[Rfam]
RNA sequence: ACCCCAUCUCAUAAGCCGACAAGGAGUAGUAUAUAUAACCAGCUCUCUAAGUGACUAUAGAUGGGAAAAUGAAAACUACUCCGAUGUGUGUAUGUUUUGAGAUAAAUUUCCAUUUCGUAACAAAGAUUAUUUCAGAGAACA
Numbered sequence: 001a002c003c004c005c006a007u008c009u010c011a012u013a014a015g016c017c018g019a020c021a022a023g024g025a026g027u028a029g030u031a032u033a034u035a036u037a038a039c040c041a042g043c044u045c046u047c048u049a050a051g052u053g054a055c056u057a058u059a060g061a062u063g064g065g066a067a068a069a070u071g072a073a074a075a076c077u078a079c080u081c082c083g084a085u086g087u088g089u090g091u092a093u094g095u096u097u098u099g100a101g102a103u104a105a106a107u108u109u110c111c112a113u114u115u116c117g118u119a120a121c122a123a124a125g126a127u128u129a130u131u132u133c134a135g136a137g138a139a140c141a
Stems, first nucleotide, its partner, number of pairs: 019052002023048004079135002083133002093122004098117002104114002
RNA: Small nucleolar RNA snoR639/H1
Organism: Lucilia cuprina